[Rfam]
RNA sequence: GGGUUCCGACCAGUUCAGUCGUCGGGGUCACAUUCAGAACUCUUGUAGUUCACCUCACCCUGUGGAAAGUCCCCGGAGCUAGGGCGGAAAGCGUCACACCGUGAUGGUGGAGGCAGGGCUGGUCUCGUAGGGGAGGUCACCUGUGCGAGGCCGGGCCCGUAGCGUUGCUCAGAGCAUAGAUAAUAUUGAUAAGACAUCUGUCUAACCAAAUGGGGCUUACUCGGUCUGGAACC
Numbered sequence: 001g002g003g004u005u006c007c008g009a010c011c012a013g014u015u016c017a018g019u020c021g022u023c024g025g026g027g028u029c030a031c032a033u034u035c036a037g038a039a040c041u042c043u044u045g046u047a048g049u050u051c052a053c054c055u056c057a058c059c060c061u062g063u064g065g066a067a068a069g070u071c072c073c074c075g076g077a078g079c080u081a082g083g084g085c086g087g088a089a090a091g092c093g094u095c096a097c098a099c100c101g102u103g104a105u106g107g108u109g110g111a112g113g114c115a116g117g118g119c120u121g122g123u124c125u126c127g128u129a130g131g132g133g134a135g136g137u138c139a140c141c142u143g144u145g146c147g148a149g150g151c152c153g154g155g156c157c158c159g160u161a162g163c164g165u166u167g168c169u170c171a172g173a174g175c176a177u178a179g180a181u182a183a184u185a186u187u188g189a190u191a192a193g194a195c196a197u198c199u200g201u202c203u204a205a206c207c208a209a210a211u212g213g214g215g216c217u218u219a220c221u222c223g224g225u226c227u228g229g230a231a232c233c
Stems, first nucleotide, its partner, number of pairs: 002233006008226004015189005023062006037051005067218003071215004083095004097109005112158002119154010131141002192203004
RNA: RNase MRP